[Rfam]
RNA: SAM riboswitch aptamer (S box leader)
Organism: Actinobacteria bacterium IMCC26207
RNA sequence: GCAUCAUCAAGAAGGCCCGAGAGUCCCGGCUCUAUGACGGUCUGGCAACCCCCGAAAACGGGAAGGUGCCCCCGCCGGAUUCGAUGAGGA
Number, nucleotide and partner (000 for none) at each position: 001g000002c089003a000004u087005c086006a085007u084008c083009a000010a000011g000012a000013a043014g042015g041016c040017c039018c000019g000020a000021g032022a031023g030024u000025c000026c078027c077028g076029g075030c023031u022032c021033u000034a000035u000036g000037a000038c000039g017040g016041u015042c014043u013044g070045g069046c068047a067048a000049c066050c065051c062052c061053c060054g059055a000056a000057a000058a000059c054060g053061g052062g051063a000064a000065g050066g049067u047068g046069c045070c044071c000072c000073c000074g082075c029076c028077g027078g026079a000080u000081u000082c074083g008084a007085u006086g005087a004088g000089g002090a000